[Rfam]
Rfam assigns this 85-nucleotide RNA sequence from Notodromas monacha to the family "mir-263 microRNA precursor family".
RNA sequence: UGUAUUCCCUUAAUGGCACUGGAAGAAUUCACGGGAUCUUAUUUCGAAUGUUCCCGUGGUUCUACUGUGCUAUACAGGGCGUUCG
Numbered sequence: 001u002g003u004a005u006u007c008c009c010u011u012a013a014u015g016g017c018a019c020u021g022g023a024a025g026a027a028u029u030c031a032c033g034g035g036a037u038c039u040u041a042u043u044u045c046g047a048a049u050g051u052u053c054c055c056g057u058g059g060u061u062c063u064a065c066u067g068u069g070c071u072a073u074a075c076a077g078g079g080c081g082u083u084c085g
Base pairs, nucleotide, nucleotide: 004082005081007079008078009077010076013073014072015071016070017069018068020067021066022065023063025062026061027060029059030058031057032056033055034054
Taxonomically the source falls in Notodromas (Eukaryota, Opisthokonta, Metazoa, Cypridoidea). The family's consensus secondary structure was predicted with RNAalifold. Gene Ontology terms of the family: miRNA-mediated post-transcriptional gene silencing and RISC complex.